[Rfam]
The record is a 140-nucleotide RNA sequence from Virgibacillus pantothenticus, which matches "FMN riboswitch aptamer (RFN element)" in Rfam. The family's consensus secondary structure is taken from published work. Rfam describes the family as follows. The RFN element is a highly conserved domain that is found frequently in the 5'-untranslated regions of prokaryotic mRNAs that encode for flavin mononucleotide (FMN) biosynthesis and transport proteins. A search with the family's covariance model found it, with a score of 120 bits.

RNA sequence: UUCCAUCUUCGGGGCAGGGUGAAAUUCCCGACCGACGGUAAAAAGCGUAUGCUUUAAGUCCGUGACCCACAAUAAUUAUUGUGGUUGAUCUGGUGCAAGUCCAGAACCGACAGUUACAGUCUGGAUGGGAGAAGAUGUCG
Numbered sequence: 001u002u003c004c005a006u007c008u009u010c011g012g013g014g015c016a017g018g019g020u021g022a023a024a025u026u027c028c029c030g031a032c033c034g035a036c037g038g039u040a041a042a043a044a045g046c047g048u049a050u051g052c053u054u055u056a057a058g059u060c061c062g063u064g065a066c067c068c069a070c071a072a073u074a075a076u077u078a079u080u081g082u083g084g085u086u087g088a089u090c091u092g093g094u095g096c097a098a099g100u101c102c103a104g105a106a107c108c109g110a111c112a113g114u115u116a117c118a119g120u121c122u123g124g125a126u127g128g129g130a131g132a133a134g135a136u137g138u139c140g
Base pairs, nucleotide, nucleotide: 004137005136006135007134008133009132010131017029018028019027031120032119033109034108035063036062037061038060058107059106067084068083089105090104091103092102093101111123112122113121